[Rfam]
RNA sequence: GUCAUUGGAUUCACCUCAAUCCACAUGUGUUGGGGUAGAUUGAGGUGGAAUUUAGUUCAAGUUCUACUCCAAUCCACCCCAGCACAUGUGGAUUGAUAUGCAUUCAACU
Numbered sequence: 001g002u003c004a005u006u007g008g009a010u011u012c013a014c015c016u017c018a019a020u021c022c023a024c025a026u027g028u029g030u031u032g033g034g035g036u037a038g039a040u041u042g043a044g045g046u047g048g049a050a051u052u053u054a055g056u057u058c059a060a061g062u063u064c065u066a067c068u069c070c071a072a073u074c075c076a077c078c079c080c081a082g083c084a085c086a087u088g089u090g091g092a093u094u095g096a097u098a099u100g101c102a103u104u105c106a107a108c109u
Stems, first nucleotide, its partner, number of pairs: 005107006012100002016096017035077002038074005045067003